Shown here is a 191-nucleotide RNA from Anopheles gambiae, a member of the family "drz-agam-2-2 ribozyme".
NCBI's taxonomy places the organism under Eukaryota, Panarthropoda, Anophelinae, Anopheles, Anopheles gambiae.

[Rfam]
RNA sequence: AACAAUACCUCGCAAUACCUCGGGGUAGAUCCGAACCCUCUAGAAGGCUAACAUAGGGACUCCACCUCCUACUCAUACUCAGUACGUCCUCGUCGUACAUAACGGAAACAUGUCUCUCAAUUAUCCAAGCUUGGGUAUACAAGGAAAUCCAACCCUUUGGGCGGAUAGGUUGCAUAGCUAAAUUGAGAGGU
Numbered sequence: 001a002a003c004a005a006u007a008c009c010u011c012g013c014a015a016u017a018c019c020u021c022g023g024g025g026u027a028g029a030u031c032c033g034a035a036c037c038c039u040c041u042a043g044a045a046g047g048c049u050a051a052c053a054u055a056g057g058g059a060c061u062c063c064a065c066c067u068c069c070u071a072c073u074c075a076u077a078c079u080c081a082g083u084a085c086g087u088c089c090u091c092g093u094c095g096u097a098c099a100u101a102a103c104g105g106a107a108a109c110a111u112g113u114c115u116c117u118c119a120a121u122u123a124u125c126c127a128a129g130c131u132u133g134g135g136u137a138u139a140c141a142a143g144g145a146a147a148u149c150c151a152a153c154c155c156u157u158u159g160g161g162c163g164g165a166u167a168g169g170u171u172g173c174a175u176a177g178c179u180a181a182a183u184u185g186a187g188a189g190g191u
Stems, first nucleotide, its partner, number of pairs: 016097001022069002024066003028062002031057002074190001076188001078187006084096003088105002110175004116169002123166004131152006154161002
The match comes from Rfam's covariance-model search (153 bits). A reference for the family is Webb et al. (2009), "Widespread occurrence of self-cleaving ribozymes", Science.